[Rfam]
RNA sequence: GUUUACAGCCAGUUUUGUUGGUUUGCUCCCAGCUUCUCUGUGUUUGCUGUGCAAAUCCAUGCAAAGCUCUCUGCAGCU
Numbered sequence: 001g002u003u004u005a006c007a008g009c010c011a012g013u014u015u016u017g018u019u020g021g022u023u024u025g026c027u028c029c030c031a032g033c034u035u036c037u038c039u040g041u042g043u044u045u046g047c048u049g050u051g052c053a054a055a056u057c058c059a060u061g062c063a064a065a066g067c068u069c070u071c072u073g074c075a076g077c078u
Stems, first nucleotide, its partner, number of pairs: 003076002006073003011068008020058002022055005028049001031048003
Shown here is a 78-nucleotide sequence from Cyprinodon variegatus, a member of the family "mir-19 microRNA precursor family". NCBI's taxonomy places the organism under Eukaryota, Deuterostomia, Euteleosteomorpha, Cyprinodontidae, Cyprinodon. A search with the family's covariance model found it, with a score of 56 bits. Rfam links the family to the GO terms miRNA-mediated post-transcriptional gene silencing and RISC complex. The base pairs follow the family's consensus structure, which was predicted with RNAalifold. Its Rfam clan is "mir-19 clan". For this family Rfam cites "Identification of novel genes coding for small expressed RNAs" (Lagos-Quintana et al., Science, 2001).